About this RNA: Shown here is an 85-nucleotide sequence from Clostridium pasteurianum, a member of the family "ZMP/ZTP riboswitch aptamer (pfl RNA motif)". The organism belongs to Clostridium pasteurianum, within Bacteria. The base pairs follow the family's consensus structure, which is taken from published work.
RNA sequence: AAGUGAUCAUGUAACUGGCGGAAAUGGAAUUAACCAUAGGGAACAUGAUUAAUUAUAUAAAAUAUCGACCGUCUGGGUAAGUUUA
Numbered sequence: 001a002a003g004u005g006a007u008c009a010u011g012u013a014a015c016u017g018g019c020g021g022a023a024a025u026g027g028a029a030u031u032a033a034c035c036a037u038a039g040g041g042a043a044c045a046u047g048a049u050u051a052a053u054u055a056u057a058u059a060a061a062a063u064a065u066c067g068a069c070c071g072u073c074u075g076g077g078u079a080a081g082u083u084u085a
Stems, first nucleotide, its partner, number of pairs: 004051009015040002017073005024037004063079004